RNA sequence: AUAAGUGGAACGAAGGCUAAGUUCGCCGCGUCCUUGCGGCAACGCCUUCAUGACCCACAUCCUGUGGG
Numbered sequence: 001a002u003a004a005g006u007g008g009a010a011c012g013a014a015g016g017c018u019a020a021g022u023u024c025g026c027c028g029c030g031u032c033c034u035u036g037c038g039g040c041a042a043c044g045c046c047u048u049c050a051u052g053a054c055c056c057a058c059a060u061c062c063u064g065u066g067g068g
Stems, first nucleotide, its partner, number of pairs: 012049006025040005054068005
RNA: Bacillaceae-1 RNA